The record is a 119-nucleotide sequence from Candidatus Moduliflexus flocculans, which matches "FMN riboswitch aptamer (RFN element)" in Rfam. Taxonomically the source falls in Candidatus Moduliflexus (Bacteria, Candidatus Moduliflexota, Candidatus Moduliflexia, Candidatus Moduliflexales).

[Rfam]
RNA sequence: GCAUUCUUUAGGGGCAAGGUGAAAUUCCUGACCGGCGGUACAGUCCGCGAGCCGAGUAAUCGGUUGAUUCGGUGUAAUUCCGAAACCGACAGUUAAAGUCUGGAUGGGAUAAAGAGGCU
Numbered sequence: 001g002c003a004u005u006c007u008u009u010a011g012g013g014g015c016a017a018g019g020u021g022a023a024a025u026u027c028c029u030g031a032c033c034g035g036c037g038g039u040a041c042a043g044u045c046c047g048c049g050a051g052c053c054g055a056g057u058a059a060u061c062g063g064u065u066g067a068u069u070c071g072g073u074g075u076a077a078u079u080c081c082g083a084a085a086c087c088g089a090c091a092g093u094u095a096a097a098g099u100c101u102g103g104a105u106g107g108g109a110u111a112a113a114g115a116g117g118c119u
Base pairs, nucleotide, nucleotide: 004116005115006114007113008112009111010110017029018028019027031099032098033088034087035048036047037046038045043086044085051064052063053062068084069083070082071081072080090102091101092100